[Rfam]
RNA sequence: UGACCUGAUGAAUUUAAUCUCAUGGAAUCUCGUUCGUCUGAAUAAUUCUGAUGAGACUUAUUAUCUGACAGUG
Numbered sequence: 001u002g003a004c005c006u007g008a009u010g011a012a013u014u015u016a017a018u019c020u021c022a023u024g025g026a027a028u029c030u031c032g033u034u035c036g037u038c039u040g041a042a043u044a045a046u047u048c049u050g051a052u053g054a055g056a057c058u059u060a061u062u063a064u065c066u067g068a069c070a071g072u073g
Stems, first nucleotide, its partner, number of pairs: 028056005035050002
Background:
This 73-nucleotide RNA from Xenopus laevis belongs to the Rfam family "Small nucleolar RNA SNORD30". The organism belongs to Xenopus, within Eukaryota. By type it is a C/D-box small nucleolar RNA. On this family, see Tycowski et al., Nature 1996: "A mammalian gene with introns instead of exons generating stable RNA products". The family is grouped with related families in Rfam's "SNORD30 clan".